The record is a 101-nucleotide RNA from Candidatus Kurthia intestinigallinarum, which matches "SAM riboswitch aptamer (S box leader)" in Rfam.
[Rfam]
RNA sequence: GAUUUAUCAAGAGCGACGGAGGGAUAGGCCCGAUGAUGUCCAGCAACCCCCAUUAUGGGAAGGUGCUAAUUCCUACAGAAUGUAUUUCUGAAAGAUAAAUA
Numbered sequence: 001g002a003u004u005u006a007u008c009a010a011g012a013g014c015g016a017c018g019g020a021g022g023g024a025u026a027g028g029c030c031c032g033a034u035g036a037u038g039u040c041c042a043g044c045a046a047c048c049c050c051c052a053u054u055a056u057g058g059g060a061a062g063g064u065g066c067u068a069a070u071u072c073c074u075a076c077a078g079a080a081u082g083u084a085u086u087u088c089u090g091a092a093a094g095a096u097a098a099a100u101a
Base pairs, nucleotide, nucleotide: 002100003099004098005097006096007095008094013041015040016039017038021031022030023029025075026074027073028072042067043066044065045064047063048062049059050058051057052056071093076090077089078088079087080086
Record summary: The family's consensus secondary structure is taken from published work. The organism belongs to Kurthia, within Bacteria. The SAM riboswitch is found upstream of a number of genes which code for proteins involved in methionine or cysteine biosynthesis in Gram-positive bacteria.